RNA: Small nucleolar RNA SNORA1
Organism: Cervus hanglu
Nucleotides: 133
Stems, first nucleotide, its partner, number of pairs: 002059003007054001015041003019037002072126005086112004091107001
Number, partner (000 for none) and nucleotide at each position: 001000g002059g003058c004057c005000a006000a007054c008000a009000c010000c011000c012000c013000g014000a015041u016040g017039a018000a019037g020036a021000c022000a023000g024000a025000c026000a027000c028000a029000a030000a031000a032000a033000u034000g035000c036020u037019c038000a039017u040016c041015a042000a043000a044000a045000a046000u047000a048000c049000u050000a051000g052000g053000a054007g055000a056000u057004g058003g059002c060000u061000a062000c063000a064000u065000u066000g067000a068000g069000a070000a071000c072126a073125c074124a075123g076122g077000u078000u079000u080000u081000g082000c083000u084000u085000c086112u087111a088110u089109c090000c091107c092000u093000g094000u095000a096000g097000u098000u099000u100000u101000a102000u103000u104000g105000c106000a107091g108000u109089g110088a111087u112086g113000a114000c115000a116000a117000u118000g119000a120000g121000a122076c123075c124074u125073g126072u127000a128000a129000u130000a131000u132000u133000u